[Rfam]
RNA sequence: CGAAAGUGUCCUUCCGAUCCGCACCAAUCCGGUCCUCAACAAACCGAUUGUCCCAGGUCAAGGACACUUUCUUCAGUUUCCACGCCGGUCAGAAACCGACCAGGUCCACUGAUCGAG
Numbered sequence: 001c002g003a004a005a006g007u008g009u010c011c012u013u014c015c016g017a018u019c020c021g022c023a024c025c026a027a028u029c030c031g032g033u034c035c036u037c038a039a040c041a042a043a044c045c046g047a048u049u050g051u052c053c054c055a056g057g058u059c060a061a062g063g064a065c066a067c068u069u070u071c072u073u074c075a076g077u078u079u080c081c082a083c084g085c086c087g088g089u090c091a092g093a094a095a096c097c098g099a100c101c102a103g104g105u106c107c108a109c110u111g112a113u114c115g116a117g
Stems, first nucleotide, its partner, number of pairs: 002071012016059002019056001021054001025050004030046001032044002097115003101111003
This 117-nucleotide RNA belongs to the Rfam family "Actinobacteria sRNA Ms_IGR-7". Rfam classes the family as a small RNA. The base pairs follow the family's consensus structure.